L17-Actino-Proteobacteria ribosomal protein leader: a 56-nucleotide RNA sequence from Actinomadura harenae.
For this family Rfam cites "Discovery of 20 novel ribosomal leader candidates in bacteria and archaea" (Eckert and Weinberg, BMC Microbiol, 2020).
The organism belongs to Actinomadura, within Bacteria.
Pairs were carried over by alignment from the consensus structure, which is taken from published work.
[Rfam]
RNA sequence: CAUACCGUUAACACGUCCGAAUGACCCGCCGCCGGUACCUCGUACGGCCGGCGCGG
Numbered sequence: 001c002a003u004a005c006c007g008u009u010a011a012c013a014c015g016u017c018c019g020a021a022u023g024a025c026c027c028g029c030c031g032c033c034g035g036u037a038c039c040u041c042g043u044a045c046g047g048c049c050g051g052c053g054c055g056g
Stems, first nucleotide, its partner, number of pairs: 001023003005019001007017001026056003030053007